[Rfam]
RNA sequence: AUUGCCAAAGGCAAACUCAGUGAAAACUGAGGACGCAAAGCUUCGGGUCUUCCACUCUCAGGUGAUGAUGGCCGAGCCGCCAAUU
Numbered sequence: 001a002u003u004g005c006c007a008a009a010g011g012c013a014a015a016c017u018c019a020g021u022g023a024a025a026a027c028u029g030a031g032g033a034c035g036c037a038a039a040g041c042u043u044c045g046g047g048u049c050u051u052c053c054a055c056u057c058u059c060a061g062g063u064g065a066u067g068a069u070g071g072c073c074g075a076g077c078c079g080c081c082a083a084u085u
Base pairs, nucleotide, nucleotide: 001085003082004081011036012035016031017030018029019028020027021026034071040077041076042075044074045073046072047069048068049067

Notes
Shown here is an 85-nucleotide sequence from Desulfosporosinus sp. I2, a member of the family "c-di-GMP-I-GGC riboswitch aptamer". Its family is annotated with cyclic-di-GMP binding in the Gene Ontology. The base pairs follow the family's consensus structure, which is taken from published work. It scores 68 bits against the family's covariance model. Rfam 15.1 lists 1,298 matches to the family in 717 species.